[Rfam]
RNA: Guanidine-I riboswitch aptamer
Organism: Pantoea ananatis
RNA sequence: UAAAUAGCUGGCUAGGGUUCCGGUUCACGCAGGUGAAUGUCUGGUCCGAGAGCUGGCGACCUCUGAGAGGUUACACGGCGGGACAAAAGCCCGGGAGAC
Numbered sequence: 001u002a003a004a005u006a007g008c009u010g011g012c013u014a015g016g017g018u019u020c021c022g023g024u025u026c027a028c029g030c031a032g033g034u035g036a037a038u039g040u041c042u043g044g045u046c047c048g049a050g051a052g053c054u055g056g057c058g059a060c061c062u063c064u065g066a067g068a069g070g071u072u073a074c075a076c077g078g079c080g081g082g083a084c085a086a087a088a089g090c091c092c093g094g095g096a097g098a099c
Stems, first nucleotide, its partner, number of pairs: 007057006015047002020044002022041001023038006058072006074094001076097001080092003
Dot-bracket structure: ......((((((..((...(((((((((....))))))..).)).))....))))))((((((...)))))).(.[...(((.......))).)..]..